Archaeal large subunit ribosomal RNA: a 97-nucleotide part of an RNA from Salinigranum rubrum.
[Rfam]
RNA sequence: GACGGGGCAUACAAGGUCCCUCGACGAACGACCGACGCGCGAGCGUCCAGUAGGAUUCGAGGGAAGCCGGUGUCGCGUCGUACGUUUUGAAAAACGA
Numbered sequence: 001g002a003c004g005g006g007g008c009a010u011a012c013a014a015g016g017u018c019c020c021u022c023g024a025c026g027a028a029c030g031a032c033c034g035a036c037g038c039g040c041g042a043g044c045g046u047c048c049a050g051u052a053g054g055a056u057u058c059g060a061g062g063g064a065a066g067c068c069g070g071u072g073u074c075g076c077g078u079c080g081u082a083c084g085u086u087u088u089g090a091a092a093a094a095c096g097a
Stems, first nucleotide, its partner, number of pairs: 001079004006074005015068002019062006029053001034047005083096003

The source organism's lineage runs through Archaea, Methanobacteriati, Halobacteria, Haloferacaceae and Salinigranum.